About this RNA: The family of this 73-nucleotide sequence from Acerihabitans arboris is "MicA sRNA". The match comes from Rfam's covariance-model search (92 bits). Taxonomically the source falls in Acerihabitans (Bacteria, Pseudomonadati, Gammaproteobacteria, Enterobacterales). The base pairs follow the family's consensus structure, which was predicted with WAR. A reference for the family is Argaman et al. (2001), "Novel small RNA-encoding genes in the intergenic regions of Escherichia coli", Curr Biol.
[Rfam]
RNA sequence: GAAAGACGCGCAUUUGUUAUCAUCAUCCCUGUAUUCAGAGAUGUUUAUUUGGCCACAGUCUCUGUGGCCUUUU
Numbered sequence: 001g002a003a004a005g006a007c008g009c010g011c012a013u014u015u016g017u018u019a020u021c022a023u024c025a026u027c028c029c030u031g032u033a034u035u036c037a038g039a040g041a042u043g044u045u046u047a048u049u050u051g052g053c054c055a056c057a058g059u060c061u062c063u064g065u066g067g068c069c070u071u072u073u
Stems, first nucleotide, its partner, number of pairs: 024043004029038003051069007